Small nucleolar RNA SNORD35: an 85-nucleotide RNA from Brachypteracias leptosomus. It is annotated as a C/D-box small nucleolar RNA. Taxonomically the source falls in Brachypteracias (Eukaryota, Euteleostomi, Sarcopterygii, Dipnotetrapodomorpha). Its Rfam clan is "SNORD35 clan".
RNA sequence: UGGUGGUGAUGUCUGAACUCACGAUGGUCUUCAGAGCCCCCAGGGGGCUGGUGACAACGCCAGUGGCAGUGGCUGAACCAGGAGC
Numbered sequence: 001u002g003g004u005g006g007u008g009a010u011g012u013c014u015g016a017a018c019u020c021a022c023g024a025u026g027g028u029c030u031u032c033a034g035a036g037c038c039c040c041c042a043g044g045g046g047g048c049u050g051g052u053g054a055c056a057a058c059g060c061c062a063g064u065g066g067c068a069g070u071g072g073c074u075g076a077a078c079c080a081g082g083a084g085c
Base pairs, nucleotide, nucleotide: 001080002079003078004077
On this family, see Nicoloso et al., J Mol Biol 1996: "Intron-encoded, antisense small nucleolar RNAs: the characterization of nine novel species points to their direct role as guides for the 2'-O-ribose methylation of rRNAs".